[Rfam]
RNA sequence: GCAAUCUCGGACGUUGUAUAAAGCAGACGAUUUCUGGGGGAUACGCGUAGUGACAUUCAGCUGAUUGCGACACUACGUAGGGUAGGUAUCGACAAAGCCUUUUGUCGAUAGACGGGAUACUUAAUGUCGCGGGAGCGGCAGCGAAUGGGAAACCCAACA
Numbered sequence: 001g002c003a004a005u006c007u008c009g010g011a012c013g014u015u016g017u018a019u020a021a022a023g024c025a026g027a028c029g030a031u032u033u034c035u036g037g038g039g040g041a042u043a044c045g046c047g048u049a050g051u052g053a054c055a056u057u058c059a060g061c062u063g064a065u066u067g068c069g070a071c072a073c074u075a076c077g078u079a080g081g082g083u084a085g086g087u088a089u090c091g092a093c094a095a096a097g098c099c100u101u102u103u104g105u106c107g108a109u110a111g112a113c114g115g116g117a118u119a120c121u122u123a124a125u126g127u128c129g130c131g132g133g134a135g136c137g138g139c140a141g142c143g144a145a146u147g148g149g150a151a152a153c154c155c156a157a158c159a
Stems, first nucleotide, its partner, number of pairs: 006038006045078008054067002087110010125140006
RNA: DABA-DC-AT RNA